[Rfam]
RNA sequence: GGGUCAUUUCAAAGAGAGCUUAUGGGACUAAAACCAGGAGCUCUUAACGCUGUGACCGAAAAUUGAAGUUCUCCAUAGGAUGUAAUAAACACUCAAUAGUGUCUAUUUUGUCCUGAAGAGAUAUAUGA
Numbered sequence: 001g002g003g004u005c006a007u008u009u010c011a012a013a014g015a016g017a018g019c020u021u022a023u024g025g026g027a028c029u030a031a032a033a034c035c036a037g038g039a040g041c042u043c044u045u046a047a048c049g050c051u052g053u054g055a056c057c058g059a060a061a062a063u064u065g066a067a068g069u070u071c072u073c074c075a076u077a078g079g080a081u082g083u084a085a086u087a088a089a090c091a092c093u094c095a096a097u098a099g100u101g102u103c104u105a106u107u108u109u110g111u112c113c114u115g116a117a118g119a120g121a122u123a124u125a126u127g128a
Base pairs, nucleotide, nucleotide: 002057003056004055005054006053007052014045015044016043017042018041019040020039021038023037026035070121071120072119073118077114078113079112080111085106086105087104089102090101091100092099093098
RNA: Small nucleolar RNA SNORA25